[Rfam]
This 77-nucleotide sequence from Ursus americanus belongs to the Rfam family "DUF3800-VI RNA". The match comes from Rfam's covariance-model search (36 bits). Lineage of the source: Eukaryota > Chordata > Teleostomi > Laurasiatheria > Ursus. By type it is a cis-regulatory element.
RNA sequence: UGGUUGGGAGGGCGUGUGGUUGGCUUCAGUCGCUGUAGUUACUGGGGUCCGCUUGGGUUUAAACCCCAGCCCAGCUU
Numbered sequence: 001u002g003g004u005u006g007g008g009a010g011g012g013c014g015u016g017u018g019g020u021u022g023g024c025u026u027c028a029g030u031c032g033c034u035g036u037a038g039u040u041a042c043u044g045g046g047g048u049c050c051g052c053u054u055g056g057g058u059u060u061a062a063a064c065c066c067c068a069g070c071c072c073a074g075c076u077u
Base pairs, nucleotide, nucleotide: 002076003075004074005073006072007071008070010050011049012048013047053069054068055067056066057065